[Rfam]
RNA sequence: UGGGAUCUUCGGAGCCCUUCACCCGGAACCUCGCAAAAGGUUCCGCAAGCAAACGGAAGACAGAAA
Numbered sequence: 001u002g003g004g005a006u007c008u009u010c011g012g013a014g015c016c017c018u019u020c021a022c023c024c025g026g027a028a029c030c031u032c033g034c035a036a037a038a039g040g041u042u043c044c045g046c047a048a049g050c051a052a053a054c055g056g057a058a059g060a061c062a063g064a065a066a
Stems, first nucleotide, its partner, number of pairs: 002017003006014001008012001025044007
The family of this 66-nucleotide sequence from Neogemmobacter tilapiae is "L2-Alphaproteobacteria ribosomal protein leader". The family's RNA type in Rfam is cis-regulatory leader. NCBI's taxonomy places the organism under Bacteria, Pseudomonadota, Alphaproteobacteria, Paracoccaceae, Neogemmobacter. It scores 57 bits against the family's covariance model. Pairs were carried over by alignment from the consensus structure, which is taken from published work.